[Rfam]
Bacillaceae-1 RNA: a 75-nucleotide sequence from Bacilli bacterium VT-13-104.
Rfam classes the family as a small RNA.
RNA sequence: GAUAGCGGAAAUUCUACUAAGACCGCCACGUCCUGUGGGCAACGUAAAAGUCCUUUUCAUCCUCCUUUUUGAACA
Numbered sequence: 001g002a003u004a005g006c007g008g009a010a011a012u013u014c015u016a017c018u019a020a021g022a023c024c025g026c027c028a029c030g031u032c033c034u035g036u037g038g039g040c041a042a043c044g045u046a047a048a049a050g051u052c053c054u055u056u057u058c059a060u061c062c063u064c065c066u067u068u069u070u071g072a073a074c075a
Stems, first nucleotide, its partner, number of pairs: 012049002015046003026038004054075001056073003